This 180-nucleotide RNA from Musa acuminata belongs to the Rfam family "U2 spliceosomal RNA".
It scores 72 bits against the family's covariance model.
The base pairs follow the family's consensus structure, which is taken from published work.
On this family, see Zwieb, Nucleic Acids Res 1997: "The uRNA database".
[Rfam]
RNA sequence: AUAUCUUUAUCGGCUUUUGGCUAAGAUCAAGUGCAGUAAAUGUUCUUAUCAGUUUAAUAUCUGAAAUAUGGAUUAUCGACCUAUCGUGAUAUCUGAUACAUGGGUUAAUCAUGGUAGCUUGCUCUUUUGCGUUCCACAACUAUACGGGCUUUAGUGUACGCCGGCUUAGGCUUGUCUCAC
Number, nucleotide and partner (000 for none) at each position: 001a000002u000003a000004u000005c000006u000007u000008u026009a000010u024011c000012g022013g021014c020015u019016u000017u000018u000019g015020g014021c013022u012023a000024a010025g000026a008027u000028c000029a000030a000031g000032u000033g000034c000035a000036g000037u000038a000039a000040a000041u000042g000043u000044u000045c000046u000047u066048a000049u064050c063051a062052g061053u000054u000055u000056a000057a000058u000059a000060u000061c052062u051063g050064a049065a000066a047067u000068a084069u083070g082071g081072a000073u079074u078075a000076u000077c000078g074079a073080c000081c071082u070083a069084u068085c000086g000087u000088g000089a000090u000091a000092u000093c000094u000095g000096a000097u000098a000099c000100a000101u000102g135103g134104g133105u000106u131107a000108a000109u000110c000111a000112u000113g000114g125115u000116a123117g122118c000119u000120u000121g000122c117123u116124c000125u114126u000127u000128u000129g000130c000131g106132u000133u104134c103135c102136a000137c000138a173139a172140c000141u170142a000143u168144a000145c164146g000147g162148g161149c160150u000151u000152u000153a000154g000155u000156g000157u000158a000159c000160g149161c148162c147163g000164g145165c000166u000167u000168a143169g000170g141171c000172u139173u138174g000175u000176c000177u000178c000179a000180c000